[Rfam]
The family of this 120-nucleotide RNA sequence from Clostridium sp. HMP27 is "SAM riboswitch aptamer (S box leader)". From the family's description: The SAM riboswitch is found upstream of a number of genes which code for proteins involved in methionine or cysteine biosynthesis in Gram-positive bacteria. The SAM riboswitch acts at the level of transcription termination control. The predicted structure consists of a complex stem-loop region followed by a single stem loop terminator region. An alternative and mutually exclusive form involves bases in the 3' segment of helix 1 with those in the 5' region of helix 5 to form a structure termed the anti-terminator form.

RNA sequence: UUCUUAUCAAGAGUGGCGGAGGGACUGGCCCCAUGAAGCCCGGCAACCCAGAUACAUUUGUUUUAAUACGUUUGUUUUGAAGGUGCUAAAUCCAGCAGGUGAAUACCUGACAGAUAAGGG
Numbered sequence: 001u002u003c004u005u006a007u008c009a010a011g012a013g014u015g016g017c018g019g020a021g022g023g024a025c026u027g028g029c030c031c032c033a034u035g036a037a038g039c040c041c042g043g044c045a046a047c048c049c050a051g052a053u054a055c056a057u058u059u060g061u062u063u064u065a066a067u068a069c070g071u072u073u074g075u076u077u078u079g080a081a082g083g084u085g086c087u088a089a090a091u092c093c094a095g096c097a098g099g100u101g102a103a104u105a106c107c108u109g110a111c112a113g114a115u116a117a118g119g120g
Base pairs, nucleotide, nucleotide: 001120002119003118004117005116006115007114008113013041015040016039017038021031022030023029025095026094027093028092042087043086044085045084047083048082049079050078051077052076091112096109097108098107099106100105